mir-2060 microRNA precursor family: a 94-nucleotide RNA sequence from Branchiostoma belcheri.
RNA sequence: GUUUGCCUGUGUGCGGAUGGUGUUCAUCACCAAGGACAGGUGUGUUUGCCUGUCUGUGGAAGGUGUUCAGCACUAAGGAUAGGUUUACCUGUGU
Numbered sequence: 001g002u003u004u005g006c007c008u009g010u011g012u013g014c015g016g017a018u019g020g021u022g023u024u025c026a027u028c029a030c031c032a033a034g035g036a037c038a039g040g041u042g043u044g045u046u047u048g049c050c051u052g053u054c055u056g057u058g059g060a061a062g063g064u065g066u067u068c069a070g071c072a073c074u075a076a077g078g079a080u081a082g083g084u085u086u087a088c089c090u091g092u093g094u
Stems, first nucleotide, its partner, number of pairs: 005084006018075007026067001028065004034055001036053007
Source information:
It scores 81 bits against the family's covariance model.